[Rfam]
RNA sequence: UAAACUGUUUGGGGUAGAUCAUCAUCUAAUUAUAGCAAAUUCACACUUGAUUUCUUAGAAUCACUUGUUAAGCUCAGCUACAUCAUGCAUCCUAGAUUGGUAAUUGGUAUUCAUUCCAUCCAAACAAGUCC
Numbered sequence: 001u002a003a004a005c006u007g008u009u010u011g012g013g014g015u016a017g018a019u020c021a022u023c024a025u026c027u028a029a030u031u032a033u034a035g036c037a038a039a040u041u042c043a044c045a046c047u048u049g050a051u052u053u054c055u056u057a058g059a060a061u062c063a064c065u066u067g068u069u070a071a072g073c074u075c076a077g078c079u080a081c082a083u084c085a086u087g088c089a090u091c092c093u094a095g096a097u098u099g100g101u102a103a104u105u106g107g108u109a110u111u112c113a114u115u116c117c118a119u120c121c122a123a124a125c126a127a128g129u130c131c
Stems, first nucleotide, its partner, number of pairs: 004129003008124002012120001014119002018115001024110002027106007
MIR480 microRNA precursor family: a 131-nucleotide sequence from Populus tomentosa. The match comes from Rfam's covariance-model search (66 bits). NCBI's taxonomy places the organism under Eukaryota, Streptophytina, Spermatophyta, Gunneridae, Populus.